[Rfam]
RNA: MIR5269 microRNA precursor family
RNA sequence: UUGGUUUGAAUCAUUGUCGAUCUAUACUUUGAAAAUAGAACUCACAUAUAAUGGUGGGACAUACAUUGAUUGUAUCCAA
Numbered sequence: 001u002u003g004g005u006u007u008g009a010a011u012c013a014u015u016g017u018c019g020a021u022c023u024a025u026a027c028u029u030u031g032a033a034a035a036u037a038g039a040a041c042u043c044a045c046a047u048a049u050a051a052u053g054g055u056g057g058g059a060c061a062u063a064c065a066u067u068g069a070u071u072g073u074a075u076c077c078a079a
Stems, first nucleotide, its partner, number of pairs: 001079004006074001009071005015065003022057003025053002028050001030048002